Record summary: Shown here is an 82-nucleotide RNA from Solirubrobacter ginsenosidimutans, a member of the family "c-di-GMP-I-GGC riboswitch aptamer". The source organism's lineage runs through Bacteria, Bacillati, Actinomycetota, Solirubrobacterales and Solirubrobacter. Gene Ontology term of the family: cyclic-di-GMP binding. For this family Rfam cites "Recognition of the bacterial second messenger cyclic diguanylate by its cognate riboswitch" (Kulshina et al., Nat Struct Mol Biol, 2009). A search with the family's covariance model found it, with a score of 68 bits. The family has 40 seed sequences and 1,298 matches in Rfam 15.1.
RNA sequence: UACGACAAACGGCAAACCCGCCGCAAGGCGGGGACGCAAAGCCACGGGACCCUCAGGUCAAGGGUCAGCCGGGCUACCGAAA
Number, nucleotide and partner (000 for none) at each position: 001u082002a000003c079004g078005a000006c000007a000008a000009a000010c000011g000012g037013c036014a000015a000016a000017c032018c031019c030020g029021c028022c027023g000024c000025a000026a000027g022028g021029c020030g019031g018032g017033g000034a000035c068036g013037c012038a000039a000040a075041g074042c073043c072044a000045c071046g070047g069048g066049a065050c064051c063052c062053u061054c000055a000056g000057g000058u000059c000060a000061a053062g052063g051064g050065u049066c048067a000068g035069c047070c046071g045072g043073g042074c041075u040076a000077c000078c004079g003080a000081a000082a001